[Rfam]
RNA sequence: CUUUAAAAAUCUGGAUCAAGCUGAAAAUUGAAACACAGAACAACGAAAGUUGUUCGUGAGUCUCUCAAAUUUUCGCAACACGAGAAUGUUUUACGAAACAUCUUCGG
Numbered sequence: 001c002u003u004u005a006a007a008a009a010u011c012u013g014g015a016u017c018a019a020g021c022u023g024a025a026a027a028u029u030g031a032a033a034c035a036c037a038g039a040a041c042a043a044c045g046a047a048a049g050u051u052g053u054u055c056g057u058g059a060g061u062c063u064c065u066c067a068a069a070u071u072u073u074c075g076c077a078a079c080a081c082g083a084g085a086a087u088g089u090u091u092u093a094c095g096a097a098a099c100a101u102c103u104u105c106g107g
Base pairs, nucleotide, nucleotide: 020076021075023074024073025072026071027070028069029068034058035057036056038055039054040053041052042051043050044049081106082105083104086101087100088099
RNA: Salmonella enterica Typhi npcRNA 44